[Rfam]
RNA sequence: UCAGAUCUCUAUCGUUUCUUACGGUAAAGAGAAGCCUGCGGUUCUUGGUCAUGACGAAGCGGCUUAUUCCAAAAACCGCCGUGCCGUCUUGGUAUACUAAGAGAGUCACAUGAUUAGUAGCUUCAGACCUCACUUGUUG
Numbered sequence: 001u002c003a004g005a006u007c008u009c010u011a012u013c014g015u016u017u018c019u020u021a022c023g024g025u026a027a028a029g030a031g032a033a034g035c036c037u038g039c040g041g042u043u044c045u046u047g048g049u050c051a052u053g054a055c056g057a058a059g060c061g062g063c064u065u066a067u068u069c070c071a072a073a074a075a076c077c078g079c080c081g082u083g084c085c086g087u088c089u090u091g092g093u094a095u096a097c098u099a100a101g102a103g104a105g106u107c108a109c110a111u112g113a114u115u116a117g118u119a120g121c122u123u124c125a126g127a128c129c130u131c132a133c134u135u136g137u138u139g
Base pairs, nucleotide, nucleotide: 001047003045004044007041008040014035015034016033017032018031019030020029054138057135058134059133062130065127067125075118076117078115080112081111082110083109086106087105089103090102
This 139-nucleotide RNA sequence from Pantoea alhagi belongs to the Rfam family "CpoB/ybgF ICR thermometer". The family's RNA type in Rfam is RNA thermoregulator. Imprinting control region from upstream of cpoB/ybgF (tol/pal system protein). The organism belongs to Pantoea, within Bacteria. The literature on the family includes a 2016 paper in Proc Natl Acad Sci U S A by Righetti et al., "Temperature-responsive in vitro RNA structurome of Yersinia pseudotuberculosis".